A member of the RNA family "mir-1 microRNA precursor family" from Ladona fulva, 75 nucleotides long. For this family Rfam cites "An extensive class of small RNAs in Caenorhabditis elegans" (Lee and Ambros, Science, 2001). This family represents the microRNA (miRNA) mir-1 family. miRNAs are transcribed as ~70nt precursors (modelled here) and subsequently processed by the Dicer enzyme to give a ~22nt product. In this case the mature sequence comes from the 3' arm of the precursor. Lineage of the source: Eukaryota > Panarthropoda > Altocrustacea > Hexapoda > Ladona. Rfam links the family to the GO terms miRNA-mediated post-transcriptional gene silencing and RISC complex. A search with the family's covariance model found it, with a score of 47 bits.
RNA sequence: AAAAUAAGCAAGCACUUCGUUAUUUCCACAGAGAAGUGGUUUCUCUGUGGAAAUAACGAAGUGCUUGCUUAUUUU
Numbered sequence: 001a002a003a004a005u006a007a008g009c010a011a012g013c014a015c016u017u018c019g020u021u022a023u024u025u026c027c028a029c030a031g032a033g034a035a036g037u038g039g040u041u042u043c044u045c046u047g048u049g050g051a052a053a054u055a056a057c058g059a060a061g062u063g064c065u066u067g068c069u070u071a072u073u074u075u
Base pairs, nucleotide, nucleotide: 007069008068009067010066011065012064013063014062015061016060017059018058019057020056021055022054023053024052025051026050027049028048029047030046